RNA sequence: UAAUGGAUACGAAAAGAGGAGUUGCGCUAACAACUCCCCUAACAGCACCGUUUAAGACGGUGACCAGCUUAAUAUUAUUUU
Dot-bracket structure: .....................(((......))).............((((((...))))))....................
A member of the RNA family "RNA anti-toxin A" from Enterococcus faecium, 81 nucleotides long. Rfam's curators put it in the seed alignment. Pairs were carried over by alignment from the consensus structure, which was predicted with RNAalifold.